[Rfam]
RNA sequence: CUUCAACGAGCCCAGCCACAAGGGCCGUUCCUCCGAGUGCUCCUUGCCGUAGGUGGCGAGGAGUGCCUGUGCCUC
Numbered sequence: 001c002u003u004c005a006a007c008g009a010g011c012c013c014a015g016c017c018a019c020a021a022g023g024g025c026c027g028u029u030c031c032u033c034c035g036a037g038u039g040c041u042c043c044u045u046g047c048c049g050u051a052g053g054u055g056g057c058g059a060g061g062a063g064u065g066c067c068u069g070u071g072c073c074u075c
Stems, first nucleotide, its partner, number of pairs: 015025003031071001033069001038065002043060003047056003